[Rfam]
RNA sequence: UCAUUCGGAUUCGCCAUCAUACGUCAACCGUGCAUUUGAUAUGCUAUAUUAUGCAUCACGAGCCACGGUUGGGCUGUAUGAUGGCGAUACCGAUUGG
Numbered sequence: 001u002c003a004u005u006c007g008g009a010u011u012c013g014c015c016a017u018c019a020u021a022c023g024u025c026a027a028c029c030g031u032g033c034a035u036u037u038g039a040u041a042u043g044c045u046a047u048a049u050u051a052u053g054c055a056u057c058a059c060g061a062g063c064c065a066c067g068g069u070u071g072g073g074c075u076g077u078a079u080g081a082u083g084g085c086g087a088u089a090c091c092g093a094u095u096g097g
Stems, first nucleotide, its partner, number of pairs: 002096002005093004011087012023074002025071008035062004041056004
RNA: MIR9666 microRNA precursor family